[Rfam]
RNA: Small nucleolar RNA snoR104
Organism: Cuscuta europaea
RNA sequence: GGGGAGUUUUGAGAAGUUAAGAUGCUCCCUGAUUAUUCUUCCUAAAGUAAAUCUUCUGGGAUUUCCUGCUUGUAGUUCCCGAGCUUGUUCAACGAGCCUCAAGUCACCAGAUACAUGU
Numbered sequence: 001g002g003g004g005a006g007u008u009u010u011g012a013g014a015a016g017u018u019a020a021g022a023u024g025c026u027c028c029c030u031g032a033u034u035a036u037u038c039u040u041c042c043u044a045a046a047g048u049a050a051a052u053c054u055u056c057u058g059g060g061a062u063u064u065c066c067u068g069c070u071u072g073u074a075g076u077u078c079c080c081g082a083g084c085u086u087g088u089u090c091a092a093c094g095a096g097c098c099u100c101a102a103g104u105c106a107c108c109a110g111a112u113a114c115a116u117g118u
Base pairs, nucleotide, nucleotide: 001030002029003028005026006025007024009022010021055111056110057109068097069096070095071094072093073092075090078087